[Rfam]
Overview
The family of this 162-nucleotide RNA from Clostridium disporicum is "M-box riboswitch aptamer (ykoK leader)".
RNA sequence: AUAUAAUAUUGUUAGGUGAGGCUCCUAUAAAGAAAUAUGCUGCUGCCCAGAAAAAUCUAGAGAUUCCAAUGGGUUAACAAGAAUCAUCGUAAAGGUGAUUUUUAAUGUAGCUGACUGAAAAAGUCUACGCUUUAUAGUGCUAAAGCUCUACGAUUAUUUAAA
Numbered sequence: 001a002u003a004u005a006a007u008a009u010u011g012u013u014a015g016g017u018g019a020g021g022c023u024c025c026u027a028u029a030a031a032g033a034a035a036u037a038u039g040c041u042g043c044u045g046c047c048c049a050g051a052a053a054a055a056u057c058u059a060g061a062g063a064u065u066c067c068a069a070u071g072g073g074u075u076a077a078c079a080a081g082a083a084u085c086a087u088c089g090u091a092a093a094g095g096u097g098a099u100u101u102u103u104a105a106u107g108u109a110g111c112u113g114a115c116u117g118a119a120a121a122a123g124u125c126u127a128c129g130c131u132u133u134a135u136a137g138u139g140c141u142a143a144a145g146c147u148c149u150a151c152g153a154u155u156a157u158u159u160a161a162a
Base pairs, nucleotide, nucleotide: 008158010156011151012150013093015147016146017145020141021140022139025137026136027135028134029133030132031131032130039111040110041109042108043107045074046073047072048071049070054065055064056063057062080102081101082100083099086096087095088094113125114124115123
A search with the family's covariance model found it, with a score of 138 bits. The organism belongs to Clostridium, within Bacteria. The pairing is the family consensus, mapped onto this sequence.